[Rfam]
RNA sequence: ACACGAGAAGGGAGGUGGUUUGACAGAUGUAUGCAAACCGGACGCGUGAGGUGACUGCGGGCUGACGCCUUCCCCCAAGCUCUUAAAGAGCAGGGGGUGCCCCCAGUCGCACUCUUUGUGCGGUGCCGGCAUGACGCCGGCCGAAAUUCCCAGCAGUCACCGACCCGCGGGCUCGCCGGUACGUCCGGCCGGCUCCUCUCCGGAGGAACCCGAGCCCGCGGGUUUCUGCGU
Dot-bracket structure: ..............(((((..................................))))).(((((.(..(.(.((.....................................................)).).)..).)))))...................((((((((((((.((((((.......))))))...................)))))))))))).......
RNA: Actinobacteria sRNA Ms_IGR-5
Organism: Streptomyces hundungensis